[Rfam]
RNA sequence: GGUGCUGGAGCAUCCCGGUGGGUCGGGAUGCAGGUCUGGUUCCUGUGUCCCAUCAGGUCGGGAUGCAGGUCUGGUUCCCGUGUCCCAGUGGAUGCA
Numbered sequence: 001g002g003u004g005c006u007g008g009a010g011c012a013u014c015c016c017g018g019u020g021g022g023u024c025g026g027g028a029u030g031c032a033g034g035u036c037u038g039g040u041u042c043c044u045g046u047g048u049c050c051c052a053u054c055a056g057g058u059c060g061g062g063a064u065g066c067a068g069g070u071c072u073g074g075u076u077c078c079c080g081u082g083u084c085c086c087a088g089u090g091g092a093u094g095c096a
Stems, first nucleotide, its partner, number of pairs: 001043002004040002010031008064096004071088003